[Rfam]
RNA sequence: AACUCAUCAAGAGCGAUGGAGGGAAUGGCCCUGUGAAGUCGCAGCAACCAUUGCAGCGUGACAGCUGUAAAACGGUGCUAAGUCCUGCAGUUUAUCUGUAAGAUGAGAA
Numbered sequence: 001a002a003c004u005c006a007u008c009a010a011g012a013g014c015g016a017u018g019g020a021g022g023g024a025a026u027g028g029c030c031c032u033g034u035g036a037a038g039u040c041g042c043a044g045c046a047a048c049c050a051u052u053g054c055a056g057c058g059u060g061a062c063a064g065c066u067g068u069a070a071a072a073c074g075g076u077g078c079u080a081a082g083u084c085c086u087g088c089a090g091u092u093u094a095u096c097u098g099u100a101a102g103a104u105g106a107g108a109a
Stems, first nucleotide, its partner, number of pairs: 003107006013042005021031003027085002043079004048075002051070006083101001088098003
Dot-bracket structure: ..((((((....(((((...(((...[[)))......)))))((((.((.((((((........))))))...))))))...(]]..(((.....)))..)))))))..
RNA: SAM riboswitch aptamer (S box leader)